[Rfam]
RNA: isrG Hfq binding RNA
RNA sequence: CUACAGCAGCAGCAGCAGCUACUGUAGCUGCUACUGUAGCUGCUGCUGUAGCUACUGCUGAAGCUACUGUAGCUGCUGCUGUAGCUGCUGCUGUAGCUGCUGCUGUAGCUGCUGCUGCUGCUGUAGCUGCUGCUGUAGCUACUGCUGAAGCUGCUGUAGCUGCUACUGUAGCUGCUGCUGUAGCUGCUGCUGAAGCUACUGUAGCUACUGCUGAAGCUACUGUAGCUACUGCUGAAGCUACAGUAGCAGCUACUGUAGCUGCUACUGUAG
Number, nucleotide and partner (000 for none) at each position: 001c000002u000003a000004c000005a000006g262007c261008a260009g259010c258011a000012g256013c255014a254015g000016c000017a251018g250019c249020u248021a000022c000023u000024g232025u231026a230027g229028c000029u000030g226031c225032u000033a000034c222035u000036g220037u219038a218039g217040c216041u000042g000043c000044u000045g000046c000047u000048g000049u000050a000051g000052c000053u000054a070055c069056u000057g067058c000059u000060g064061a000062a000063g000064c060065u000066a000067c057068u000069g055070u054071a110072g109073c108074u107075g106076c000077u000078g000079c102080u000081g100082u000083a098084g097085c096086u095087g094088c000089u000090g000091c000092u000093g000094u087095a086096g085097c084098u083099g000100c081101u000102g079103c000104u000105g000106u075107a074108g073109c072110u071111g211112c210113u000114g208115c000116u000117g205118c204119u203120g202121c201122u000123g199124u198125a197126g196127c195128u194129g000130c192131u000132g190133c189134u000135g187136u186137a185138g184139c183140u000141a000142c147143u000144g000145c000146u000147g142148a000149a000150g000151c000152u000153g181154c180155u000156g000157u000158a000159g175160c174161u000162g172163c171164u170165a169166c000167u000168g000169u165170a164171g163172c162173u000174g160175c159176u000177g000178c000179u000180g154181u153182a000183g139184c138185u137186g136187c135188u000189g133190c132191u000192g130193a000194a128195g127196c126197u125198a124199c123200u000201g121202u120203a119204g118205c117206u000207a000208c114209u000210g112211c111212u000213g000214a000215a000216g040217c039218u038219a037220c036221u000222g034223u000224a000225g031226c030227u000228a000229c027230u026231g025232c024233u000234g000235a000236a000237g244238c243239u000240a000241c000242a000243g238244u237245a000246g000247c000248a020249g019250c018251u017252a000253c000254u014255g013256u012257a000258g010259c009260u008261g007262c006263u000264a000265c000266u000267g000268u000269a000270g000